[Rfam]
RNA sequence: UGAGUAGGUAAAAACGAUCGCACCGAUUUUCGGUGAGGAAAGUCCGAGCUCCAUAGGGCAAGGGUGCCGGGUAAUACCCGGUGGAGGCGACUCUAAGGAAAGUGCAACAGAAAUAAACCGCCCGCUGAAAAAGCGUGGUAAGGAUGGAAAGGUGAGGUAAGAGCUCACCGCCUCUCCGGUAACGGUGAGGGCAUAUGUAAACCCCACUCGGAGCAAGACCAAACAAACCUUAGGUGGCCCGCCAGGUUUAGGUAGGUCGCUAGAUUUUACCGGUGACGGUAAAGCCAGACAGAUGAUCGUUCAUGACAGAACUCGGCUUAUCCGCCUGCUCAUAAU
Numbered sequence: 001u002g003a004g005u006a007g008g009u010a011a012a013a014a015c016g017a018u019c020g021c022a023c024c025g026a027u028u029u030u031c032g033g034u035g036a037g038g039a040a041a042g043u044c045c046g047a048g049c050u051c052c053a054u055a056g057g058g059c060a061a062g063g064g065u066g067c068c069g070g071g072u073a074a075u076a077c078c079c080g081g082u083g084g085a086g087g088c089g090a091c092u093c094u095a096a097g098g099a100a101a102g103u104g105c106a107a108c109a110g111a112a113a114u115a116a117a118c119c120g121c122c123c124g125c126u127g128a129a130a131a132a133g134c135g136u137g138g139u140a141a142g143g144a145u146g147g148a149a150a151g152g153u154g155a156g157g158u159a160a161g162a163g164c165u166c167a168c169c170g171c172c173u174c175u176c177c178g179g180u181a182a183c184g185g186u187g188a189g190g191g192c193a194u195a196u197g198u199a200a201a202c203c204c205c206a207c208u209c210g211g212a213g214c215a216a217g218a219c220c221a222a223a224c225a226a227a228c229c230u231u232a233g234g235u236g237g238c239c240c241g242c243c244a245g246g247u248u249u250a251g252g253u254a255g256g257u258c259g260c261u262a263g264a265u266u267u268u269a270c271c272g273g274u275g276a277c278g279g280u281a282a283a284g285c286c287a288g289a290c291a292g293a294u295g296a297u298c299g300u301u302c303a304u305g306a307c308a309g310a311a312c313u314c315g316g317c318u319u320a321u322c323c324g325c326c327u328g329c330u331c332a333u334a335a336u
Base pairs, nucleotide, nucleotide: 001332002331003330004329005328006327007326008325009324011321013301014300015299016298017297018296019295021035022034023033024032025031026030040319041318042317044316045315046314047313048312049213050212051211052210057240058239062209063208064207065206066205067081068080069079070078071077082096083094084093085092086091097204098203102202103201104198105197106196118143119142120139121138122137126133151169152168153167154166155165156164170192171190172189173188174187176185177184178183217258218257219256220255225249226248227247228246229245230244233243234242235241265284266283267282268281269280270279271278272277

A member of the RNA family "Bacterial RNase P class A" from Clostridiales bacterium COT073_COT-073, 336 nucleotides long. A search with the family's covariance model found it, with a score of 282 bits. By type it is a ribozyme. From the family's description: Ribonuclease P (RNase P) is a ubiquitous endoribonuclease, found in archaea, bacteria and eukarya as well as chloroplasts and mitochondria. The source organism's lineage runs through Bacteria, Bacillati, Bacillota, Clostridia and Eubacteriales.